FMN riboswitch aptamer (RFN element): a 134-nucleotide RNA sequence from Candidatus Kurthia intestinigallinarum.
Lineage of the source: Bacteria > Bacillati > Bacilli > Caryophanales > Kurthia.
For this family Rfam cites "FMN riboswitch aptamer symmetry facilitates conformational switching through mutually exclusive coaxial stacking configurations" (Wilt et al., J Struct Biol X, 2020).
RNA sequence: AUUCAUCUUCGGGGCAGGGUGUAAUUCCCGACCGGCGGUAAAUAAACAGUAUUGUUUAAAGCCCGCGAGCCGUAAAACGCUGAUUCAGUGAGACUCUGGAGCCGACAGUAUAGUCUGGAUGGGAGAAGGUGAAG
Dot-bracket structure: ..((((((((......(((.......))).[[((((((......................[[))))..((........))...(((((.......)))))]])).(((....]]))).......))))))))..